RNA sequence: CCUAUGGAGUAUCACAUCAAACGAAAGUAGCUUAGGCAAAAUCGGAUACGUUGAAGUAGGAA
Numbered sequence: 001c002c003u004a005u006g007g008a009g010u011a012u013c014a015c016a017u018c019a020a021a022c023g024a025a026a027g028u029a030g031c032u033u034a035g036g037c038a039a040a041a042u043c044g045g046a047u048a049c050g051u052u053g054a055a056g057u058a059g060g061a062a
Stems, first nucleotide, its partner, number of pairs: 001060005009049005022044003030037002
RAGATH-18 RNA: a 62-nucleotide RNA from Halolactibacillus alkaliphilus.
Taxonomically the source falls in Halolactibacillus (Bacteria, Bacilli, Caryophanales, Bacillaceae).
By type it is a small RNA.